[Rfam]
RNA sequence: UGCAAUCACUACUGCAAUUCGCUCUGGAUAAGAGCAUCUGCUAAUUGACUAAAA
Numbered sequence: 001u002g003c004a005a006u007c008a009c010u011a012c013u014g015c016a017a018u019u020c021g022c023u024c025u026g027g028a029u030a031a032g033a034g035c036a037u038c039u040g041c042u043a044a045u046u047g048a049c050u051a052a053a054a
Stems, first nucleotide, its partner, number of pairs: 013043001014041003021035005
About this RNA: This 54-nucleotide RNA from Salmo trutta belongs to the Rfam family "UnaL2 LINE 3' element". It is annotated as a cis-regulatory element. Rfam's curators write: The eel long interspersed element (LINE) UnaL2 and its partner short interspersed element (SINE) share a conserved 3' tail containing a stem-loop that is critical for their retrotransposition. Presumably, the first step of retrotransposition is the recognition of their 3' tails by UnaL2-encoded reverse transcriptase. The solution structure of a 17-nucleotide RNA derived from the 3' tail of UnaL2 was determined by NMR. On this family, see Baba et al., RNA 2004: "Solution structure of an RNA stem-loop derived from the 3' conserved region of eel LINE UnaL2".